Shown here is an 83-nucleotide sequence from Pipistrellus kuhlii, a member of the family "mir-574 microRNA precursor family". The literature on the family includes a 2007 paper in Cancer Res by Lui et al., "Patterns of known and novel small RNAs in human cervical cancer". The base pairs follow the family's consensus structure, which was predicted with RNAalifold. The match comes from Rfam's covariance-model search (80 bits). Rfam links the family to the GO terms miRNA-mediated post-transcriptional gene silencing and RISC complex. Lineage of the source: Eukaryota > Metazoa > Vertebrata > Sarcopterygii > Pipistrellus.
Nucleotides: 083
Stems, first nucleotide, its partner, number of pairs: 008075002011072010022061001024057006032049004
Number, partner (000 for none) and nucleotide at each position: 001000a002000g003000g004000c005000c006000c007000a008075a009074g010000a011072a012071g013070a014069g015068a016067g017066g018065c019064a020063g021000g022061g023000u024057c025056u026055g027054a028053u029052c030000c031000a032049c033048a034047g035046c036000c037000u038000c039000c040000u041000u042000g043000a044000c045000a046035g047034c048033u049032g050000u051000u052029g053028a054027u055026c056025a057024g058000c059000g060000c061022c062000c063020u064019u065018g066017c067016c068015u069014c070013u071012c072011u073000c074009u075008u076000u077000c078000u079000c080000u081000c082000a083000g